[Rfam]
Shown here is a 159-nucleotide sequence from Panax ginseng, a member of the family "MIR6140 microRNA precursor family". The base pairs follow the family's consensus structure, which was predicted with RNAalifold.
RNA sequence: ACACAAACUAUUCUGCAAAUAUUUUACAAAUUGCUGAUGUGGCAUUCUCCACCUCAGCUUUUUAUGUGGGGCCAAAGACUACAUUGCAACAAUUUGUUGAUCAAUAUGUUGAGGGUGUAGUAUGUCACAUCAGUAAAAUGUUUGUAGAAUAAUUUGUGU
Numbered sequence: 001a002c003a004c005a006a007a008c009u010a011u012u013c014u015g016c017a018a019a020u021a022u023u024u025u026a027c028a029a030a031u032u033g034c035u036g037a038u039g040u041g042g043c044a045u046u047c048u049c050c051a052c053c054u055c056a057g058c059u060u061u062u063u064a065u066g067u068g069g070g071g072c073c074a075a076a077g078a079c080u081a082c083a084u085u086g087c088a089a090c091a092a093u094u095u096g097u098u099g100a101u102c103a104a105u106a107u108g109u110u111g112a113g114g115g116u117g118u119a120g121u122a123u124g125u126c127a128c129a130u131c132a133g134u135a136a137a138a139u140g141u142u143u144g145u146a147g148a149a150u151a152a153u154u155u156g157u158g159u
Base pairs, nucleotide, nucleotide: 001159002158003157004156005155006154007153009151010150011149012148013147014146015145016144017143018142019141020140021139022138023137024136025135026134034133035132036131037130038129039128040127041126042125043124044123045122047120048119050117051116052114053113054112055111056110058108060106062104063103
Lineage of the source: Eukaryota > Embryophyta > Tracheophyta > Apiales > Panax.